Shown here is a 73-nucleotide sequence from Gouania willdenowi, a member of the family "mir-19 microRNA precursor family". The family's consensus secondary structure was predicted with RNAalifold. NCBI's taxonomy places the organism under Eukaryota, Vertebrata, Blenniimorphae, Gobiesocinae, Gouania. Its Rfam clan is "mir-19 clan".
[Rfam]
RNA sequence: GCCCACUGUUAGUUUUGCAUAGUUGCGCUGCAAGAAGUAAGUUGUGCAAAUCUAUGCAAAACUGACAGUGUUC
Numbered sequence: 001g002c003c004c005a006c007u008g009u010u011a012g013u014u015u016u017g018c019a020u021a022g023u024u025g026c027g028c029u030g031c032a033a034g035a036a037g038u039a040a041g042u043u044g045u046g047c048a049a050a051u052c053u054a055u056g057c058a059a060a061a062c063u064g065a066c067a068g069u070g071u072u073c
Base pairs, nucleotide, nucleotide: 004070005069006068007067008066009065010064011063012062013061014060015059016058017057018056019055023049024048025047026046027045028044030042031041